[Rfam]
RNA sequence: GUCGACGGCCCGCCUGCCGGAGCCCCGAACCGGGGAACCACGUUCCCCUGGGGUGAAUCCCCGGUCGUGACCCGUUCGAGCGCGGCGCCGCCGUCCGUUCGGGCCGGGACCGGGGUAGGACACAUCCUCGUCCGAACCCGUCAGCUCACCCGGUAGGCGGCAGGGAUGAAAGGC
Numbered sequence: 001g002u003c004g005a006c007g008g009c010c011c012g013c014c015u016g017c018c019g020g021a022g023c024c025c026c027g028a029a030c031c032g033g034g035g036a037a038c039c040a041c042g043u044u045c046c047c048c049u050g051g052g053g054u055g056a057a058u059c060c061c062c063g064g065u066c067g068u069g070a071c072c073c074g075u076u077c078g079a080g081c082g083c084g085g086c087g088c089c090g091c092c093g094u095c096c097g098u099u100c101g102g103g104c105c106g107g108g109a110c111c112g113g114g115g116u117a118g119g120a121c122a123c124a125u126c127c128u129c130g131u132c133c134g135a136a137c138c139c140g141u142c143a144g145c146u147c148a149c150c151c152g153g154u155a156g157g158c159g160g161c162a163g164g165g166a167u168g169a170a171a172g173g174c
Stems, first nucleotide, its partner, number of pairs: 002028003029154006039050002051139003059115008118133004
RNA: c-di-AMP riboswitch aptamer (ydaO/yuaA leader)
Organism: Nakamurella flava